[Rfam]
RNA sequence: AGUGGCGGGGCUGCGGGCGGUGAAAGAGGAAGAACUCUUGGGAGAGAAACCUUCCAAACCAACCAAACCCCGUGUUCGUCACCCGCUGGGGUGAAAUGUGUCAAGUCGGCUGGCGUGACGAUGGUUUGGGCGUGCAGGCUCGGCGGAGACAACCGCAGACAUGCGUCGGCCCCCGCCGGGACUUCCACCUCCCAGUGCGAGGGCCUGACCACCGAGGAGAAGAAGAGAGCUUCCCU
Numbered sequence: 001a002g003u004g005g006c007g008g009g010g011c012u013g014c015g016g017g018c019g020g021u022g023a024a025a026g027a028g029g030a031a032g033a034a035c036u037c038u039u040g041g042g043a044g045a046g047a048a049a050c051c052u053u054c055c056a057a058a059c060c061a062a063c064c065a066a067a068c069c070c071c072g073u074g075u076u077c078g079u080c081a082c083c084c085g086c087u088g089g090g091g092u093g094a095a096a097u098g099u100g101u102c103a104a105g106u107c108g109g110c111u112g113g114c115g116u117g118a119c120g121a122u123g124g125u126u127u128g129g130g131c132g133u134g135c136a137g138g139c140u141c142g143g144c145g146g147a148g149a150c151a152a153c154c155g156c157a158g159a160c161a162u163g164c165g166u167c168g169g170c171c172c173c174c175g176c177c178g179g180g181a182c183u184u185c186c187a188c189c190u191c192c193c194a195g196u197g198c199g200a201g202g203g204c205c206u207g208a209c210c211a212c213c214g215a216g217g218a219g220a221a222g223a224a225g226a227g228a229g230c231u232u233c234c235c236u
Stems, first nucleotide, its partner, number of pairs: 007213002010210001016070002079094006109144005168205005174199003178193004216234002220232003

A member of the RNA family "Streptomyces sRNA 4677" from Streptomyces sp. MA5143a, 236 nucleotides long. From the family's description: Located in the intergenic region between anti-sigma factor SCO4677 gene and a putative regulatory protein gene SCO4676. scr4677 expression requires the SCO4677 activity and scr4677 sRNA itself seem to affect the levels of the SCO4676-associated transcripts. The match comes from Rfam's covariance-model search (103 bits). Taxonomically the source falls in Streptomyces (Bacteria, Bacillati, Actinomycetota, Actinomycetes). The family has 12 seed sequences and 563 matches in Rfam 15.1.